[Rfam]
Rfam assigns this 85-nucleotide sequence from Rummeliibacillus sp. TYF005 to the family "Group II catalytic intron D1-D4-1".
RNA sequence: UAACCUGUUUAGUGAUAAACAACUGAACUAUCAGGAGUCAGCAGACGUCAUAGUACCAUUUGAUUCUAGAACAAAUGGGAAGGAC
Numbered sequence: 001u002a003a004c005c006u007g008u009u010u011a012g013u014g015a016u017a018a019a020c021a022a023c024u025g026a027a028c029u030a031u032c033a034g035g036a037g038u039c040a041g042c043a044g045a046c047g048u049c050a051u052a053g054u055a056c057c058a059u060u061u062g063a064u065u066c067u068a069g070a071a072c073a074a075a076u077g078g079g080a081a082g083g084a085c
Base pairs, nucleotide, nucleotide: 001025002024006021007020008019009018010017011016037046038045039044047085048084049083056078057077058076059075060074061073